[Rfam]
RNA sequence: GCGUUCGGGUAAUCGCUGCAUAUUCAUUAUGUAGAGGAAAGUCCAUGCUCGCACGGUCUGCGAUGACCGUAGUAUUCGCGCCUAACGAAACAAUAAGUUAGGGUAAUUCGGUUGCGACUGAAUUAACGGCUGGGAAACACCUAAGUCUUCUUGAUAUGGUGUCUACCUAUAAAAGUGCCACAGUGACGGAGUUCUCUUGGAAACAGGGGAAGUGGAACGAGGUAAACCCCGCGUGCGAGAAACCCAAAUUAUGGUAGGGGAGCUUUCUCGAAGGAAAUGAACGGAGAGAAGGUCGAAUGUUAAGAUUCGAAGAUAGAUGAUUACCACCCAAGUACAAGGUUAAUCCCGUUUGCAGUACGAGGGCACAAAACAUGGCUUAUAGAA
Number, nucleotide and partner (000 for none) at each position: 001g000002c000003g000004u384005u383006c382007g380008g325009g324010u323011a322012a321013u320014c319015g000016c034017u033018g032019c031020a030021u029022a000023u000024u000025c000026a000027u000028u000029a021030u020031g019032u018033a017034g016035a000036g000037g000038a000039a378040a377041g376042u000043c375044c374045a373046u372047g371048c239049u238050c237051g236052c235053a070054c069055g068056g067057u066058c065059u000060g000061c000062g000063a000064u000065g058066a057067c056068c055069g054070u053071a000072g000073u000074a000075u000076u000077c233078g232079c231080g230081c102082c101083u100084a099085a098086c097087g000088a000089a000090a000091c000092a000093a000094u000095a000096a000097g086098u085099u084100a083101g082102g081103g127104u125105a124106a123107u122108u121109c120110g119111g118112u117113u000114g000115c000116g000117a112118c111119u110120g109121a108122a107123u106124u105125a104126a000127c103128g229129g228130c000131u169132g168133g167134g166135a000136a000137a000138c161139a160140c159141c158142u000143a000144a000145g155146u154147c153148u000149u000150c000151u000152u000153g147154a146155u145156a000157u000158g141159g140160u139161g138162u000163c000164u000165a000166c134167c133168u132169a131170u000171a000172a000173a000174a000175g227176u226177g223178c222179c221180a000181c000182a000183g000184u000185g000186a000187c000188g000189g000190a000191g000192u211193u210194c209195u208196c207197u206198u205199g204200g000201a000202a000203a000204c199205a198206g197207g196208g195209g194210a193211a192212g000213u000214g000215g000216a000217a000218c000219g000220a000221g179222g178223u177224a000225a000226a176227c175228c129229c128230c080231g079232c078233g077234u000235g052236c051237g050238a049239g048240a000241a000242a000243c259244c258245c257246a000247a000248a000249u000250u000251a000252u000253g000254g000255u000256a000257g245258g244259g243260g000261a000262g000263c292264u291265u290266u289267c288268u287269c286270g000271a000272a000273g000274g000275a000276a000277a000278u000279g000280a000281a000282c000283g000284g000285a000286g269287a268288g267289a266290a265291g264292g263293u310294c309295g308296a307297a306298u305299g000300u000301u000302a000303a000304g000305a298306u297307u296308c295309g294310a293311a000312g000313a000314u000315a000316g000317a000318u000319g014320a013321u012322u011323a010324c009325c008326a000327c363328c362329c361330a000331a000332g358333u357334a356335c355336a000337a000338g000339g000340u000341u000342a000343a000344u000345c000346c000347c000348g000349u000350u000351u000352g000353c000354a000355g335356u334357a333358c332359g000360a000361g329362g328363g327364c000365a000366c000367a000368a000369a000370a000371c047372a046373u045374g044375g043376c041377u040378u039379a000380u007381a000382g006383a005384a004

This 384-nucleotide sequence from Pueribacillus theae belongs to the Rfam family "Bacterial RNase P class B".
The family's RNA type in Rfam is ribozyme.
Rfam describes the family as follows. Ribonuclease P (RNase P) is a ubiquitous endoribonuclease, found in archaea, bacteria and eukarya as well as chloroplasts and mitochondria. Its best characterised activity is the generation of mature 5'-ends of tRNAs by cleaving the 5'-leader elements of precursor-tRNAs.